[Rfam]
RNA: c-di-AMP riboswitch aptamer (ydaO/yuaA leader)
Organism: Alteribacter keqinensis
RNA sequence: GCCUUUUCAUCGCUGAAACUGUAAGUAUACACAGUGCGGGGGAACCACAACCGGCAAUCUGCCUUGGGGUGAAUCUUUUUAUUUUUAAAAGAAGGGAUACUCUCAGUCCCUAAUCCGACAGCUAACCUCGUAAGCGUCAUGUAGGAGAGAA
Numbered sequence: 001g002c003c004u005u006u007u008c009a010u011c012g013c014u015g016a017a018a019c020u021g022u023a024a025g026u027a028u029a030c031a032c033a034g035u036g037c038g039g040g041g042g043a044a045c046c047a048c049a050a051c052c053g054g055c056a057a058u059c060u061g062c063c064u065u066g067g068g069g070u071g072a073a074u075c076u077u078u079u080u081a082u083u084u085u086u087a088a089a090a091g092a093a094g095g096g097a098u099a100c101u102c103u104c105a106g107u108c109c110c111u112a113a114u115c116c117g118a119c120a121g122c123u124a125a126c127c128u129c130g131u132a133a134g135c136g137u138c139a140u141g142u143a144g145g146a147g148a149g150a151a
Stems, first nucleotide, its partner, number of pairs: 011136004018035005036131006046066002067116003075091004094110004